[Rfam]
RNA sequence: AACCUAACCUGACUAGGACUUGUCCGAAAGGCAUGGUUGCAAAUCUCAACAAAGGUACGACGCUCGUCGUUUAGGUAUUCUUUGUUGAGUCAUAACUGGAAACGGUUGUGGGUGAUCUUCGGGUCAUC
Numbered sequence: 001a002a003c004c005u006a007a008c009c010u011g012a013c014u015a016g017g018a019c020u021u022g023u024c025c026g027a028a029a030g031g032c033a034u035g036g037u038u039g040c041a042a043a044u045c046u047c048a049a050c051a052a053a054g055g056u057a058c059g060a061c062g063c064u065c066g067u068c069g070u071u072u073a074g075g076u077a078u079u080c081u082u083u084g085u086u087g088a089g090u091c092a093u094a095a096c097u098g099g100a101a102a103c104g105g106u107u108g109u110g111g112g113u114g115a116u117c118u119u120c121g122g123g124u125c126a127u128c
Base pairs, nucleotide, nucleotide: 001038002037003036004035009031010030014026045089046088047087048086049085050084051083052082053081054080055079057076058075091110092109093108094107095106096105097104098103111128112127113126114125115124116123
Rfam assigns this 128-nucleotide sequence to the family "LOOT RNA". It is annotated as a small RNA. The base pairs follow the family's consensus structure, which is taken from published work. The sequence is in the family's curated seed alignment.